[Rfam]
RNA: Singlet oxygen resistance RNA X
RNA sequence: ACCCCUCGAAGGCAAUGAUGCUUAUACGCUCAUCGCUUUCACCUCCCUGUUGGACUUCGCCGGGCCCUGUGCCCGGCAUUUUUU
Numbered sequence: 001a002c003c004c005c006u007c008g009a010a011g012g013c014a015a016u017g018a019u020g021c022u023u024a025u026a027c028g029c030u031c032a033u034c035g036c037u038u039u040c041a042c043c044u045c046c047c048u049g050u051u052g053g054a055c056u057u058c059g060c061c062g063g064g065c066c067c068u069g070u071g072c073c074c075g076g077c078a079u080u081u082u083u084u
Stems, first nucleotide, its partner, number of pairs: 008040006059077007